[Rfam]
RNA sequence: UAGUCAAGUGCUCAGAUGUCUGUGGUGGCUGCUUAUGUAUCACGGAUGUUUGAGCAUGUGCUAUGGUAUCUA
Number, nucleotide and partner (000 for none) at each position: 001u063002a062003g061004u000005c060006a059007a000008g057009u056010g055011c054012u053013c052014a051015g050016a049017u048018g000019u045020c044021u000022g000023u000024g000025g043026u042027g041028g040029c000030u039031g038032c037033u000034u000035a000036u000037g032038u031039a030040u028041c027042a026043c025044g020045g019046a000047u000048g017049u016050u015051u014052g013053a012054g011055c010056a009057u008058g000059u006060g005061c003062u002063a001064u000065g000066g000067u000068a000069u000070c000071u000072a000
Shown here is a 72-nucleotide RNA sequence from Rattus norvegicus, a member of the family "mir-105 microRNA precursor family". A reference for the family is Ahn et al. (2010), "MicroRNA transcriptome in the newborn mouse ovaries determined by massive parallel sequencing", Mol Hum Reprod. It is one of the family's seed sequences. The source organism's lineage runs through Eukaryota, Metazoa, Deuterostomia, Boreoeutheria and Rattus. The family's consensus secondary structure was predicted with RNAalifold.